[Rfam]
RNA: Small nucleolar RNA snR84
Organism: Saccharomyces uvarum
RNA sequence: AUUGCACAACUUAAGUUUGUCGGGGAUCAUUUUUUUUAAACUGAAUCUUGCCCUUUUCUAAGUGUUUGAAACCUUCGAUGAAUGUGUCAAUGUGCAAAGAUAGACUGUUGUUCUCUGUUGAUAAGUGAUUUUGGUAUAUGCUUUGGAAAUUUUUUUCCCUUUCCUAUUGACUUUUGUUUUAAAAGUCGUUUGGAAAGUAUAGGCAUGAUUAAAAUUGCGACUAUUUUUUAAUUGCUUUUCGCUUUUGCAUGCAUAUUAUAUGCAUGCACUCCUCAUGUUUUAUCAGACCUUCGAGAUUGGUUUUUCCAUGUUUCUGUUUUUUCAUAUCAUUUCCCCUCCUUUUAAUAUGUCCUAUAUUAACACCAAUUGUUUUGUACGUGUUGCAUUUCCCAUCAUGAGUCAGUCUAGUCAGAGUUCUUCUUUCAAGUUUGGUUCGGUUGGGCUUGAGACACACAGCAUGGUUGGUGCGCGGGAGGGGAUGAUUGAGAAUAUACGGAAAUCGAAAGACCAUGGAAGCGAAGAUACCUGAGAUAGUUUUGCUGAAAAAGAAGCUACAAAAGCUUGAUUC
Dot-bracket structure: ..............(((..((((((.(((.(((....))).))).((..((.((......)).))..))...))))))..))).........................................(..((((((((...(((((.(((((....)))))((((((...(((((((((...)))))))))...))))))...)))))..))))))))..).................(((((((((((((((((((.....))))))))..............................(((((((((....(((((..........(((.(((((.((.....(((((((...))))))).((((((((((.((....(((((.((...((((...(.((((((.(..(..((((...))))..)..).))))))..).))))..)).)))))..)).))))))))))....)).))))).)))...........)))))..))))))))).)))))))))))..........((((((.........))))))...............